[Rfam]
Nucleotides: 060
Stems, first nucleotide, its partner, number of pairs: 010025004016051006032041003
Number, partner (000 for none) and nucleotide at each position: 001000u002000g003000c004000a005000u006000a007000a008000a009000a010025a011024g012023u013022g014000a015000u016051g017050g018049a019048a020047c021046c022013c023012a024011c025010u026000u027000u028000a029000a030000c031000c032041g033040c034039c035000g036000a037000a038000a039034g040033g041032c042000u043000g044000a045000u046021g047020g048019u049018u050017c051016c052000u053000a054000c055000u056000u057000g058000u059000g060000a

Shown here is a 60-nucleotide RNA from Caldanaerobacter subterraneus, a member of the family "Fluoride riboswitch aptamer (crcB RNA motif)".
It is one of the family's seed sequences.